[Rfam]
RNA sequence: UAUUCUAUUUUGGGCAUAUUCUCAUCUAUUUAUACUUUAUAGCAGACCGCACAUGAGUGCUAAGAAUCAUCCACUAUGACAAGCUAGAUUAUCAAUUCAUAUGGAAUAGGUGACCACAUUUGGUAA
Numbered sequence: 001u002a003u004u005c006u007a008u009u010u011u012g013g014g015c016a017u018a019u020u021c022u023c024a025u026c027u028a029u030u031u032a033u034a035c036u037u038u039a040u041a042g043c044a045g046a047c048c049g050c051a052c053a054u055g056a057g058u059g060c061u062a063a064g065a066a067u068c069a070u071c072c073a074c075u076a077u078g079a080c081a082a083g084c085u086a087g088a089u090u091a092u093c094a095a096u097u098c099a100u101a102u103g104g105a106a107u108a109g110g111u112g113a114c115c116a117c118a119u120u121u122g123g124u125a126a
Stems, first nucleotide, its partner, number of pairs: 005123003009118001012115001014111002018107002023103003028097001030095002
RNA: MIR480 microRNA precursor family